A member of the RNA family "Small nucleolar RNA snR35" from Eremothecium gossypii, 176 nucleotides long. Gene Ontology terms of the family: nucleolus and RNA processing. The family's RNA type in Rfam is H/ACA-box small nucleolar RNA. Taxonomically the source falls in Eremothecium gossypii (Eukaryota, Dikarya, Ascomycota, Saccharomycetes). The sequence is in the family's curated seed alignment.
RNA sequence: AACCAAUAAAAAUCGUGCGGAUUUUUGCAUCCAGGACUCUAAAACCGUGUUGCUAGGGCCGCGCGCUACGCGGCCACAGCGUCAAGUCCAUCGGAGAGAUCAGUUGGUUCAUCUCAACGCCCUUUCUUCCUGCCGGGCGCUCACUGGCAGGGGGAGGGCUGGUAGAACAGACAUUC
Numbered sequence: 001a002a003c004c005a006a007u008a009a010a011a012a013u014c015g016u017g018c019g020g021a022u023u024u025u026u027g028c029a030u031c032c033a034g035g036a037c038u039c040u041a042a043a044a045c046c047g048u049g050u051u052g053c054u055a056g057g058g059c060c061g062c063g064c065g066c067u068a069c070g071c072g073g074c075c076a077c078a079g080c081g082u083c084a085a086g087u088c089c090a091u092c093g094g095a096g097a098g099a100u101c102a103g104u105u106g107g108u109u110c111a112u113c114u115c116a117a118c119g120c121c122c123u124u125u126c127u128u129c130c131u132g133c134c135g136g137g138c139g140c141u142c143a144c145u146g147g148c149a150g151g152g153g154g155a156g157g158g159c160u161g162g163u164a165g166a167a168c169a170g171a172c173a174u175u176c
Stems, first nucleotide, its partner, number of pairs: 008026007030095003034089004052080003057075007112167001114165001116163001119159005126154008137142001